[Rfam]
This 135-nucleotide RNA from Varanus komodoensis belongs to the Rfam family "Small nucleolar RNA SNORA61". Rfam describes the family as follows. ACA61 is a member of the H/ACA class of snoRNA that guide the sites of modification of uridines to pseudouridines. Rfam classes the family as an H/ACA-box small nucleolar RNA. The organism belongs to Varanus, within Eukaryota. Rfam 15.1 lists 881 matches to the family in 421 species. It scores 77 bits against the family's covariance model. The base pairs follow the family's consensus structure, which was predicted with PFOLD.

RNA sequence: ACCCUCCCUAUCCCUUUCCCAUCAGAUCUGAAUACUGAUCUUAUGGUCAAGAAGGAGGAAAAGUAAAAUGGAAGCCAGCCCUUGCAUCUUUGCUGGGGAAUAUCCUGCACUGAACUGGGCUGUCUUGAAACAGUU
Numbered sequence: 001a002c003c004c005u006c007c008c009u010a011u012c013c014c015u016u017u018c019c020c021a022u023c024a025g026a027u028c029u030g031a032a033u034a035c036u037g038a039u040c041u042u043a044u045g046g047u048c049a050a051g052a053a054g055g056a057g058g059a060a061a062a063g064u065a066a067a068a069u070g071g072a073a074g075c076c077a078g079c080c081c082u083u084g085c086a087u088c089u090u091u092g093c094u095g096g097g098g099a100a101u102a103u104c105c106u107g108c109a110c111u112g113a114a115c116u117g118g119g120c121u122g123u124c125u126u127g128a129a130a131c132a133g134u135u
Stems, first nucleotide, its partner, number of pairs: 003058005019046004025040004076122006